[Rfam]
RNA sequence: AGUAAGGAUAGAGGCGCAAAGACCAUCAGUACACAGUCAGAGGAUAAUGAGAUCCUAUGAAGACUGUGGAAAGGGGAAUUUGCCGAAGUGGAGAGAAUCUCAUCUUCUCGAAGCUGGUUCUGGGUUGAAUAAGUCCAGAACUGUCAUAUAGGUAACUAUAUGGAGGGCUAUCUUGCAA
Numbered sequence: 001a002g003u004a005a006g007g008a009u010a011g012a013g014g015c016g017c018a019a020a021g022a023c024c025a026u027c028a029g030u031a032c033a034c035a036g037u038c039a040g041a042g043g044a045u046a047a048u049g050a051g052a053u054c055c056u057a058u059g060a061a062g063a064c065u066g067u068g069g070a071a072a073g074g075g076g077a078a079u080u081u082g083c084c085g086a087a088g089u090g091g092a093g094a095g096a097a098u099c100u101c102a103u104c105u106u107c108u109c110g111a112a113g114c115u116g117g118u119u120c121u122g123g124g125u126u127g128a129a130u131a132a133g134u135c136c137a138g139a140a141c142u143g144u145c146a147u148a149u150a151g152g153u154a155a156c157u158a159u160a161u162g163g164a165g166g167g168c169u170a171u172c173u174u175g176c177a178a
Stems, first nucleotide, its partner, number of pairs: 006173006016083005023076002032068007087115003093109005116142011144163007
Dot-bracket structure: .....((((((....(((((..((.......(((((((.......................)))))))......))..)))))...(((...(((((.......)))))...)))(((((((((((.....))))))))))).(((((((......)))))))....)))))).....